[Rfam]
RNA sequence: CGAAUGACGGUUCUCCGAGCUUGCCUACCUAAGUCGACAGAUAUGGGGGUGUAGCCGUGGUAAUAAGGCCACUGGGGUGAGUAAAGAAAUGCACUCGCCUCCCACACUUGGAAAGGUGAUCAUGUCUCAAUUGC
Dot-bracket structure: ...(.(.....((.((..(((...((.((...(((....)))..)).))...))).(((((......)))))..((((((((..(....)..))))))))((.......))...)).)).....).).......
RNA: Molybdenum/Tungsten riboswitch aptamer (Moco RNA motif)
Organism: Shewanella sp. ANA-3